Shown here is a 110-nucleotide RNA sequence from Paenibacillaceae bacterium GAS479, a member of the family "epsC RNA". The match comes from Rfam's covariance-model search (97 bits). Rfam 15.1 lists 450 matches to the family in 334 species. Rfam classes the family as a cis-regulatory element. The base pairs follow the family's consensus structure, which is taken from published work.

RNA sequence: AGGUAAUGCCUCUUGCACCUUUAUCAGCAGAGGUACUCGGUCAUGCUGUGGGCCAGCGGCCUUAGACGUUAAUCGUCAGGGGCAUGAUGUGAGGUGGGGUUGGAUGCCCU
Numbered sequence: 001a002g003g004u005a006a007u008g009c010c011u012c013u014u015g016c017a018c019c020u021u022u023a024u025c026a027g028c029a030g031a032g033g034u035a036c037u038c039g040g041u042c043a044u045g046c047u048g049u050g051g052g053c054c055a056g057c058g059g060c061c062u063u064a065g066a067c068g069u070u071a072a073u074c075g076u077c078a079g080g081g082g083c084a085u086g087a088u089g090u091g092a093g094g095u096g097g098g099g100u101u102g103g104a105u106g107c108c109c110u
Stems, first nucleotide, its partner, number of pairs: 001020004007035007036093004040088008050062005065077004096110005